Description:
A member of the RNA family "Caenorhabditis snoRNA ceN108" from Caenorhabditis japonica, 69 nucleotides long. Rfam links the family to the GO terms nucleolus and RNA processing. The match comes from Rfam's covariance-model search (70 bits). The literature on the family includes a 2007 paper in BMC Mol Biol by Jia et al., "Systematic identification of non-coding RNA 2,2,7-trimethylguanosine cap structures in Caenorhabditis elegans". The organism belongs to Caenorhabditis, within Eukaryota. The base pairs follow the family's consensus structure.

Nucleotides: 069
Base pairs, nucleotide, nucleotide: 001069002068003067004066
Number, partner (000 for none) and nucleotide at each position: 001069g002068u003067g004066c005000a006000a007000u008000g009000a010000a011000u012000g013000g014000u015000u016000u017000g018000g019000a020000u021000a022000a023000g024000u025000u026000u027000c028000g029000g030000c031000u032000g033000a034000u035000u036000c037000u038000g039000a040000u041000u042000g043000a044000u045000g046000c047000u048000a049000a050000u051000u052000u053000g054000a055000u056000u057000a058000u059000a060000u061000g062000c063000u064000g065000a066004g067003c068002a069001c